The record is a 150-nucleotide sequence from Escherichia coli, which matches "Short Intergenic Abundant RNA" in Rfam.
On this family, see Wassarman et al., Genes Dev 2001: "Identification of novel small RNAs using comparative genomics and microarrays".
This family contains multiple ncRNA from E. coli that were identified in a large scale screen of E. coli, were they were called candidates 43,55 and 61.
The sequence is in the family's curated seed alignment.

RNA sequence: UUGACGCUGUUGUUUUUUCAACCUAGAGUAAAGGAACAAGGGUAAGGGAGGAUUUCUCCCCCCUCUGAUGAGUUGUUAGUAAGUCGGGAAACUUAACAGUAACAACACAACCAGUAUGAUGACGAGCUUCAUCAUAACCCUUUCCUUAUA
Number, nucleotide and partner (000 for none) at each position: 001u000002u000003g000004a000005c000006g000007c000008u000009g000010u000011u000012g000013u000014u000015u000016u000017u000018u000019c000020a000021a000022c000023c000024u000025a000026g000027a000028g000029u000030a000031a000032a146033g145034g144035a143036a000037c000038a142039a141040g140041g139042g138043u137044a000045a000046g063047g062048g061049a000050g000051g000052a000053u000054u000055u000056c000057u000058c000059c000060c000061c048062c047063c046064u000065c114066u113067g112068a000069u000070g000071a000072g000073u000074u000075g000076u000077u000078a000079g000080u000081a000082a000083g000084u000085c000086g000087g000088g000089a000090a000091a000092c000093u000094u000095a000096a000097c000098a000099g000100u000101a000102a000103c000104a000105a000106c000107a000108c000109a000110a000111c000112c067113a066114g065115u136116a135117u134118g133119a132120u131121g130122a000123c000124g000125a000126g000127c000128u000129u000130c121131a120132u119133c118134a117135u116136a115137a043138c042139c041140c040141u039142u038143u035144c034145c033146u032147u000148a000149u000150a000